The family of this 203-nucleotide RNA sequence from Nocardioides sp. JQ2195 is "Actinobacteria sRNA Ms_IGR-5". The literature on the family includes a 2013 paper in RNA by Li et al., "Identification of small RNAs in Mycobacterium smegmatis using heterologous Hfq". Pairs were carried over by alignment from the consensus structure.
RNA sequence: ACACGUGAAAGGAGGUGGUCCAGCAGAUGCAUUCGCAAGGGACUCGUGAGGUGGCUGCCCGCUAGCAGCUCCACUGCCACGGGACUACCCAGCAGCUGUUGCAGCCGCCGGCGAAUCCACGGCAGUCACCCGGCCCGCAGGUGCUCCGGACAUCAGUCCACCGGAGACGACUGAAUCCCAGUCACACCUGCGGGUCGACCCAU
Number, nucleotide and partner (000 for none) at each position: 001a000002c000003a000004c000005g000006u000007g000008a000009a000010a000011g000012g000013a000014g059015g058016u057017g056018g055019u054020c000021c000022a000023g000024c000025a000026g000027a000028u000029g000030c000031a000032u000033u000034c000035g000036c000037a000038a000039g000040g000041g000042a000043c000044u000045c000046g000047u000048g000049a000050g000051g000052u000053g000054g019055c018056u017057g016058c015059c014060c113061g112062c111063u110064a000065g108066c107067a000068g105069c104070u103071c000072c000073a100074c000075u098076g000077c000078c000079a000080c000081g000082g000083g000084a000085c000086u000087a000088c000089c000090c000091a000092g000093c000094a000095g000096c000097u000098g075099u000100u073101g000102c000103a070104g069105c068106c000107g066108c065109c000110g063111g062112c061113g060114a000115a000116u000117c000118c000119a000120c000121g000122g000123c000124a000125g000126u000127c000128a000129c000130c000131c197132g196133g195134c194135c193136c192137g191138c190139a189140g188141g187142u186143g185144c000145u165146c164147c163148g162149g161150a000151c000152a000153u000154c000155a000156g000157u000158c000159c000160a000161c149162c148163g147164g146165a145166g000167a000168c000169g000170a000171c000172u000173g000174a000175a000176u000177c000178c000179c000180a000181g000182u000183c000184a000185c143186a142187c141188c140189u139190g138191c137192g136193g135194g134195u133196c132197g131198a000199c000200c000201c000202a000203u000